[Rfam]
RNA: Fluoride riboswitch aptamer (crcB RNA motif)
Organism: Tatumella morbirosei
RNA sequence: UGACUUCGGGGUGAUGGUGUUCCACCUCAACCAACCGCCGCUCUGAGACCUGAGCGGCUGAUGACGCCUGACAUAAU
Numbered sequence: 001u002g003a004c005u006u007c008g009g010g011g012u013g014a015u016g017g018u019g020u021u022c023c024a025c026c027u028c029a030a031c032c033a034a035c036c037g038c039c040g041c042u043c044u045g046a047g048a049c050c051u052g053a054g055c056g057g058c059u060g061a062u063g064a065c066g067c068c069u070g071a072c073a074u075a076a077u
Base pairs, nucleotide, nucleotide: 010026011025012024013023016068017067018066019065020064021063037058038057039056040055041054042053043052